Rfam assigns this 111-nucleotide RNA sequence from Capsicum annuum to the family "Plant small nucleolar RNA R71". Rfam links the family to the GO terms nucleolus and RNA processing. The literature on the family includes a 2003 paper in Trends Plant Sci by Brown et al., "Plant snoRNAs: functional evolution and new modes of gene expression". It is annotated as a C/D-box small nucleolar RNA.
[Rfam]
RNA sequence: AGACUGUUGAUGGUGUGGACAGUCUUGAAAAAAAUCCUUGAACCAAUCCCAAGCAUGAUAAAUAUUCUCAUCUGGCUUCUAUUUGAAGCACACUAUCUCACUGUGAAGUCU
Numbered sequence: 001a002g003a004c005u006g007u008u009g010a011u012g013g014u015g016u017g018g019a020c021a022g023u024c025u026u027g028a029a030a031a032a033a034a035u036c037c038u039u040g041a042a043c044c045a046a047u048c049c050c051a052a053g054c055a056u057g058a059u060a061a062a063u064a065u066u067c068u069c070a071u072c073u074g075g076c077u078u079c080u081a082u083u084u085g086a087a088g089c090a091c092a093c094u095a096u097c098u099c100a101c102u103g104u105g106a107a108g109u110c111u
Base pairs, nucleotide, nucleotide: 001111003109004108005106061078062077
The organism belongs to Capsicum, within Eukaryota. The family has 25 seed sequences and 278,378 matches in Rfam 15.1.